The family of this 72-nucleotide RNA is "DUF3800-X RNA".
The base pairs follow the family's consensus structure, which is taken from published work.
[Rfam]
RNA sequence: UGGUGAGUAAGUCCUCCCGAAAGGAUGAUGCCAUGUUGACAUGGGUGGGAGCGAGUAGGGAAGGGUUCACCA
Numbered sequence: 001u002g003g004u005g006a007g008u009a010a011g012u013c014c015u016c017c018c019g020a021a022a023g024g025a026u027g028a029u030g031c032c033a034u035g036u037u038g039a040c041a042u043g044g045g046u047g048g049g050a051g052c053g054a055g056u057a058g059g060g061a062a063g064g065g066u067u068c069a070c071c072a
Stems, first nucleotide, its partner, number of pairs: 001072006012065004016060003031044005